[Rfam]
The record is an 82-nucleotide RNA sequence from Papilio xuthus, which matches "mir-981 microRNA precursor family" in Rfam.
RNA sequence: CCUCACAUAAUUCGGGUUUCGGGACGAUGUAACCGUGAUAAAUGAGAUGGUUCGUUGUCGACGAAACCUGCAAAAUGUGCGG
Numbered sequence: 001c002c003u004c005a006c007a008u009a010a011u012u013c014g015g016g017u018u019u020c021g022g023g024a025c026g027a028u029g030u031a032a033c034c035g036u037g038a039u040a041a042a043u044g045a046g047a048u049g050g051u052u053c054g055u056u057g058u059c060g061a062c063g064a065a066a067c068c069u070g071c072a073a074a075a076u077g078u079g080c081g082g
Stems, first nucleotide, its partner, number of pairs: 001082002004079003013070009031052004
Rfam links the family to the GO terms miRNA-mediated post-transcriptional gene silencing and RISC complex.